[Rfam]
RNA sequence: GUAGGGAAGCUCAUCAGCAGGGCUAGGAGCUGAGUGCGCUUAGUCACUCUAUCCCAUGUCCCUUGGGAAGGUCUGAGACUAGAGCCAUAGAGCGGCCCUAACAGGGCCUUCCCUGAGCUUCGGGGAUGUGAGUUCCCAGAGAACAGGGCUCCGUGCGAGGACAGACUGGGCAGGAGAUGCUAUGGACCUUGCCCUUGCAGAGGGGCCUGGCAAAUGCCUCCUUAGCCGGAGUUUGGAACAGACUCACCACCAGCGAAGUGAGUUCAACAGCUGAGGUGAGGUGCCCUGCGUGGGGGCCUCAUAACCCAAUUCAGACUACUCCUGC
Numbered sequence: 001g002u003a004g005g006g007a008a009g010c011u012c013a014u015c016a017g018c019a020g021g022g023c024u025a026g027g028a029g030c031u032g033a034g035u036g037c038g039c040u041u042a043g044u045c046a047c048u049c050u051a052u053c054c055c056a057u058g059u060c061c062c063u064u065g066g067g068a069a070g071g072u073c074u075g076a077g078a079c080u081a082g083a084g085c086c087a088u089a090g091a092g093c094g095g096c097c098c099u100a101a102c103a104g105g106g107c108c109u110u111c112c113c114u115g116a117g118c119u120u121c122g123g124g125g126a127u128g129u130g131a132g133u134u135c136c137c138a139g140a141g142a143a144c145a146g147g148g149c150u151c152c153g154u155g156c157g158a159g160g161a162c163a164g165a166c167u168g169g170g171c172a173g174g175a176g177a178u179g180c181u182a183u184g185g186a187c188c189u190u191g192c193c194c195u196u197g198c199a200g201a202g203g204g205g206c207c208u209g210g211c212a213a214a215u216g217c218c219u220c221c222u223u224a225g226c227c228g229g230a231g232u233u234u235g236g237a238a239c240a241g242a243c244u245c246a247c248c249a250c251c252a253g254c255g256a257a258g259u260g261a262g263u264u265c266a267a268c269a270g271c272u273g274a275g276g277u278g279a280g281g282u283g284c285c286c287u288g289c290g291u292g293g294g295g296g297c298c299u300c301a302u303a304a305c306c307c308a309a310u311u312c313a314g315a316c317u318a319c320u321c322c323u324g325c
Stems, first nucleotide, its partner, number of pairs: 005322003010275004015270001019063004032049005037043001073314005084250001094108005110126005128247007148232006276302007
Dot-bracket structure: ....(((..[[[[.[...((((.........((((((.....).)))))..........)))).........(((((......(.........(((((.....))))).(((((.......))))).(((((((.............((((((.........................................................................))))))........)))))))..)...................].]]]](((((((.............))))))).......))))).....)))...
Nuclear RNase P: a 325-nucleotide RNA sequence from Ovis aries. On this family, see Frank and Pace, Annu Rev Biochem 1998: "Ribonuclease P: unity and diversity in a tRNA processing ribozyme". Taxonomically the source falls in Ovis (Eukaryota, Vertebrata, Amniota, Pecora). Rfam classes the family as a ribozyme. It scores 202 bits against the family's covariance model.